[Rfam]
RNA sequence: UGCAAUAUUACAGGGCAAUAUCUUCAUUGGCAGGCAGCCACUUAGACAUGCAUUCCAAUUUCCAACACCAAACUCAAAUGCAUUAAUGUACGUAGUGUGCUCUCUGCCAAAGGAGAUUUGCCCGGCAAUUCUUUU
Number, nucleotide and partner (000 for none) at each position: 001u000002g000003c000004a000005a000006u000007a129008u128009u127010a000011c125012a000013g123014g122015g121016c120017a119018a118019u000020a000021u000022c115023u114024u113025c112026a000027u000028u109029g108030g107031c106032a105033g104034g103035c000036a101037g100038c099039c000040a000041c000042u000043u000044a000045g000046a000047c000048a000049u000050g000051c000052a000053u000054u000055c000056c000057a000058a000059u000060u000061u000062c000063c000064a000065a000066c000067a000068c000069c000070a000071a000072a000073c000074u000075c000076a000077a000078a000079u000080g000081c000082a000083u000084u000085a000086a000087u000088g000089u000090a000091c000092g000093u000094a000095g000096u000097g000098u000099g038100c037101u036102c000103u034104c033105u032106g031107c030108c029109a028110a000111a000112g025113g024114a023115g022116a000117u000118u018119u017120g016121c015122c014123c013124g000125g011126c000127a009128a008129u007130u000131c000132u000133u000134u000135u000